This 170-nucleotide RNA sequence from Medicago truncatula belongs to the Rfam family "MIR2619 microRNA precursor family". A search with the family's covariance model found it, with a score of 171 bits.
RNA sequence: AAACAGCCCCCUAUGUUUUGAUUCUUUGGCAGUUUUGGACCCCCAAGACAAAAAAUAAAAUAAAAAUUGAUACGUGGCACCUCAAGUGAGGUGCCACGUCAGCGUUGACCGAGUCAACAAUGGACUGGGGGUCCAAAACUGCGAAAGAAUCAAAACAUAGGGGGCUGUUU
Numbered sequence: 001a002a003a004c005a006g007c008c009c010c011c012u013a014u015g016u017u018u019u020g021a022u023u024c025u026u027u028g029g030c031a032g033u034u035u036u037g038g039a040c041c042c043c044c045a046a047g048a049c050a051a052a053a054a055a056u057a058a059a060a061u062a063a064a065a066a067u068u069g070a071u072a073c074g075u076g077g078c079a080c081c082u083c084a085a086g087u088g089a090g091g092u093g094c095c096a097c098g099u100c101a102g103c104g105u106u107g108a109c110c111g112a113g114u115c116a117a118c119a120a121u122g123g124a125c126u127g128g129g130g131g132u133c134c135a136a137a138a139c140u141g142c143g144a145a146a147g148a149a150u151c152a153a154a155a156c157a158u159a160g161g162g163g164g165c166u167g168u169u170u
Stems, first nucleotide, its partner, number of pairs: 001170002004167005012159016029142017072099002075096008